A member of the RNA family "Histone 3' UTR stem-loop" from Acrocephalus arundinaceus, 46 nucleotides long.
The mRNAs of metazoan histone genes lack a poly-A tail. 3' end processing occurs at a site between a highly conserved stem-loop (modelled by this family) and a purine rich region around 20 nts downstream (the histone downstream element, or HDE). The stem-loop is bound by a 31 kDa stem-loop binding protein (SLBP - also termed the histone hairpin binding protein, or HBP). Together with U7 snRNA binding of the HDE, SLBP binding nucleate s the formation of the processing complex. The histone 3' UTR stem-loop is also involved in nucleocytoplasmic transport of the mRNA, and in stability regulation and translation efficiency in the cytoplasm.
The family's consensus secondary structure is taken from published work.
The family's RNA type in Rfam is cis-regulatory element.
A reference for the family is Williams and Marzluff (1995), "The sequence of the stem and flanking sequences at the 3' end of histone mRNA are critical determinants for the binding of the stem-loop binding protein", Nucleic Acids Res.
[Rfam]
RNA sequence: CCAAAGGCUCUUUUAAGAGCCACCCACUCACUCUCAAAAAGAGCAG
Numbered sequence: 001c002c003a004a005a006g007g008c009u010c011u012u013u014u015a016a017g018a019g020c021c022a023c024c025c026a027c028u029c030a031c032u033c034u035c036a037a038a039a040a041g042a043g044c045a046g
Base pairs, nucleotide, nucleotide: 006021007020008019009018010017011016